RNA: transfer-messenger RNA
RNA sequence: GGGGCCGACCUGGUUUCGACGUGGGUGCGGAAUCGGAGCAGGGCAUGCCGAGCACCAGUUCGCUCGUAAAACCACUGGAAACAAAGUAACUGCGAACGACGAACGUUUCGCCCUCGCCGCUUAACACCGGUGAGCCUCUCAACGGUUGGCCGAUGGGCCGGGCCUGAGAUCGCAAGGUCAAGGGCUGAGAGGUCAUUCACAUUGGCUGGAUCUGAGCCGGGUCACACGGUUCAGGUCGAGAUCUCGUGACUGGCGUGUCCAAGAGGGUGUUCCUGCCCGCUUGGCGCGUGAGACUCAAAUCAGAGAACUACGCAUGUAGAACUGCCUGAGGAUGGCUUGCGGACGGGGGUUCAAUUCCCCCCGGCUCCACCA
Numbered sequence: 001g002g003g004g005c006c007g008a009c010c011u012g013g014u015u016u017c018g019a020c021g022u023g024g025g026u027g028c029g030g031a032a033u034c035g036g037a038g039c040a041g042g043g044c045a046u047g048c049c050g051a052g053c054a055c056c057a058g059u060u061c062g063c064u065c066g067u068a069a070a071a072c073c074a075c076u077g078g079a080a081a082c083a084a085a086g087u088a089a090c091u092g093c094g095a096a097c098g099a100c101g102a103a104c105g106u107u108u109c110g111c112c113c114u115c116g117c118c119g120c121u122u123a124a125c126a127c128c129g130g131u132g133a134g135c136c137u138c139u140c141a142a143c144g145g146u147u148g149g150c151c152g153a154u155g156g157g158c159c160g161g162g163c164c165u166g167a168g169a170u171c172g173c174a175a176g177g178u179c180a181a182g183g184g185c186u187g188a189g190a191g192g193u194c195a196u197u198c199a200c201a202u203u204g205g206c207u208g209g210a211u212c213u214g215a216g217c218c219g220g221g222u223c224a225c226a227c228g229g230u231u232c233a234g235g236u237c238g239a240g241a242u243c244u245c246g247u248g249a250c251u252g253g254c255g256u257g258u259c260c261a262a263g264a265g266g267g268u269g270u271u272c273c274u275g276c277c278c279g280c281u282u283g284g285c286g287c288g289u290g291a292g293a294c295u296c297a298a299a300u301c302a303g304a305g306a307a308c309u310a311c312g313c314a315u316g317u318a319g320a321a322c323u324g325c326c327u328g329a330g331g332a333u334g335g336c337u338u339g340c341g342g343a344c345g346g347g348g349g350u351u352c353a354a355u356u357c358c359c360c361c362c363g364g365c366u367c368c369a370c371c372a
Stems, first nucleotide, its partner, number of pairs: 001368007020341007033329004038325004044316005049066005055078005113134007135192006144159003149206007209237009220251006253289007261281001265278003269308004275300001345361005